[Rfam]
RNA: tRNA
Organism: Callosobruchus maculatus
RNA sequence: GGCACCGUAGCAUAAUUGGUAACGCCCUGGCCUAGAAUGCCGGAGACGCUGGUUCGAAUCCAGCCGGUACCC
Numbered sequence: 001g002g003c004a005c006c007g008u009a010g011c012a013u014a015a016u017u018g019g020u021a022a023c024g025c026c027c028u029g030g031c032c033u034a035g036a037a038u039g040c041c042g043g044a045g046a047c048g049c050u051g052g053u054u055c056g057a058a059u060c061c062a063g064c065c066g067g068u069a070c071c072c
Base pairs, nucleotide, nucleotide: 001071002070004068005067006066007065010025011024013022027043028042029041030040031039048064049063050062051061052060